[Rfam]
RNA sequence: UUAAGUAGUGGUGCCGUUCUUAUUAAAUCUCAAAAAGUAAUAAGAGCUGUUCAUUACUUAUCA
Numbered sequence: 001u002u003a004a005g006u007a008g009u010g011g012u013g014c015c016g017u018u019c020u021u022a023u024u025a026a027a028u029c030u031c032a033a034a035a036a037g038u039a040a041u042a043a044g045a046g047c048u049g050u051u052c053a054u055u056a057c058u059u060a061u062c063a
Base pairs, nucleotide, nucleotide: 002060003059004058005057006056007055008054009053010052011051013050014049016047017046018045019044020043021042022041023040024039025038
Background: Shown here is a 63-nucleotide RNA sequence from Caenorhabditis japonica, a member of the family "microRNA mir-251 microRNA precursor family". The organism belongs to Caenorhabditis, within Eukaryota. The base pairs follow the family's consensus structure, which was predicted with RNAalifold.